[Rfam]
RNA: Small nucleolar RNA SNORA9
Organism: Oryctolagus cuniculus
RNA sequence: CCGCAAGCCUCCAGCGUGCCUGGGCCUGCCGUGACCCUGUGCAUUCCUGCGGUGCUUGCCAGAGCAGUGUCGAAACGGUUUGAGGCCUUGCCCUGCCCCAUCCGGAGCAAGGUUAUAGAACUUUCAGACAGCU
Numbered sequence: 001c002c003g004c005a006a007g008c009c010u011c012c013a014g015c016g017u018g019c020c021u022g023g024g025c026c027u028g029c030c031g032u033g034a035c036c037c038u039g040u041g042c043a044u045u046c047c048u049g050c051g052g053u054g055c056u057u058g059c060c061a062g063a064g065c066a067g068u069g070u071c072g073a074a075a076c077g078g079u080u081u082g083a084g085g086c087c088u089u090g091c092c093c094u095g096c097c098c099c100a101u102c103c104g105g106a107g108c109a110a111g112g113u114u115a116u117a118g119a120a121c122u123u124u125c126a127g128a129c130a131g132c133u
Stems, first nucleotide, its partner, number of pairs: 003059006017043003022037003026033001072125004086112006093105003